[Rfam]
RNA sequence: GGUCAAUGAUGUAUUGUCACGUAUUAUCUGAUUUACGGCUGAUGUGCAUUAAUACUUUAGCUCUAGAAUUACGCUGAGACCUU
Numbered sequence: 001g002g003u004c005a006a007u008g009a010u011g012u013a014u015u016g017u018c019a020c021g022u023a024u025u026a027u028c029u030g031a032u033u034u035a036c037g038g039c040u041g042a043u044g045u046g047c048a049u050u051a052a053u054a055c056u057u058u059a060g061c062u063c064u065a066g067a068a069u070u071a072c073g074c075u076g077a078g079a080c081c082u083u
Base pairs, nucleotide, nucleotide: 001081002080003079004078
Overview:
A member of the RNA family "Small nucleolar RNA SNORD45" from Heterocephalus glaber, 83 nucleotides long. It scores 71 bits against the family's covariance model. It is annotated as a C/D-box small nucleolar RNA. Its family is annotated with RNA processing and nucleolus in the Gene Ontology. The base pairs follow the family's consensus structure, which was predicted with PFOLD. The source organism's lineage runs through Eukaryota, Opisthokonta, Theria, Rodentia and Heterocephalus. The literature on the family includes a 2001 paper in EMBO J by Huttenhofer et al., "RNomics: an experimental approach that identifies 201 candidates for novel, small, non-messenger RNAs in mouse".